[Rfam]
RNA sequence: GGCACUUCUCGGGUGAGGUACCCCAGAAUAGGGCUCCCUCCUCUCUGGUUCUGGGUGGGUCACCCAAGAACUGCA
Numbered sequence: 001g002g003c004a005c006u007u008c009u010c011g012g013g014u015g016a017g018g019u020a021c022c023c024c025a026g027a028a029u030a031g032g033g034c035u036c037c038c039u040c041c042u043c044u045c046u047g048g049u050u051c052u053g054g055g056u057g058g059g060u061c062a063c064c065c066a067a068g069a070a071c072u073g074c075a
Base pairs, nucleotide, nucleotide: 002074003073006070007069008068009067011065012064013063014062015061016060019057020056021055022054023053025052026051027050028049029048031046032045033044
RNA: mir-9223 microRNA precursor family